[Rfam]
RNA: RAGATH-8 RNA
RNA sequence: AGCAACAAAGAAAGCAGGAAAGACCGGAUGAAGCGAUAGGGCGGUUCACAAGUAACAUGGUAGUUAUGCUGAUAAAUAAUAUAUCAGAUGGAGUGAAUGUAGAAUAAACAUGAUCCGGCAAAACAGUUGAAGAAAGCAGGAACGGUAGGACAAGAAAGCCCAGUGUUCGGAACGUAGCAAAAAACCGAACAGGUUGAACCAAUCAACACUUUACUCCUUAACCAAGAAGCCGUUAAGCAGAAGAAUCAACUAGCGAGAGGACACAGUACUUUGUUGCU
Numbered sequence: 001a002g003c004a005a006c007a008a009a010g011a012a013a014g015c016a017g018g019a020a021a022g023a024c025c026g027g028a029u030g031a032a033g034c035g036a037u038a039g040g041g042c043g044g045u046u047c048a049c050a051a052g053u054a055a056c057a058u059g060g061u062a063g064u065u066a067u068g069c070u071g072a073u074a075a076a077u078a079a080u081a082u083a084u085c086a087g088a089u090g091g092a093g094u095g096a097a098u099g100u101a102g103a104a105u106a107a108a109c110a111u112g113a114u115c116c117g118g119c120a121a122a123a124c125a126g127u128u129g130a131a132g133a134a135a136g137c138a139g140g141a142a143c144g145g146u147a148g149g150a151c152a153a154g155a156a157a158g159c160c161c162a163g164u165g166u167u168c169g170g171a172a173c174g175u176a177g178c179a180a181a182a183a184a185c186c187g188a189a190c191a192g193g194u195u196g197a198a199c200c201a202a203u204c205a206a207c208a209c210u211u212u213a214c215u216c217c218u219u220a221a222c223c224a225a226g227a228a229g230c231c232g233u234u235a236a237g238c239a240g241a242a243g244a245a246u247c248a249a250c251u252a253g254c255g256a257g258a259g260g261a262c263a264c265a266g267u268a269c270u271u272u273g274u275u276g277c278u
Stems, first nucleotide, its partner, number of pairs: 001278010024118006044098006053066004069087006126250005136238002141234006147218004155212004164191007193207005